[Rfam]
Rfam assigns this 87-nucleotide RNA from Helianthus annuus to the family "mir-160 microRNA precursor family". The source organism's lineage runs through Eukaryota, Euphyllophyta, campanulids, Heliantheae and Helianthus. The base pairs follow the family's consensus structure, which was predicted with PFOLD.
RNA sequence: ACAUGCCUGGCUCCCUGUAUGCCAUUUGCGGAACCCAUCGAUUGGUGUGAUGGUCUCCGCAGAUGGCGUAUGUGGAGUCGUGCAUAU
Number, nucleotide and partner (000 for none) at each position: 001a087002c000003a085004u084005g083006c082007c000008u080009g079010g078011c077012u076013c075014c074015c000016u072017g071018u070019a069020u068021g067022c066023c065024a064025u000026u000027u061028g060029c059030g000031g000032a000033a000034c000035c000036c000037a000038u000039c000040g000041a000042u000043u000044g000045g000046u000047g000048u000049g000050a000051u000052g000053g000054u000055c000056u000057c000058c000059g029060c028061a027062g000063a000064u024065g023066g022067c021068g020069u019070a018071u017072g016073u000074g014075g013076a012077g011078u010079c009080g008081u000082g006083c005084a004085u003086a000087u001

On this family, see Rhoades et al., Cell 2002: "Prediction of plant microRNA targets".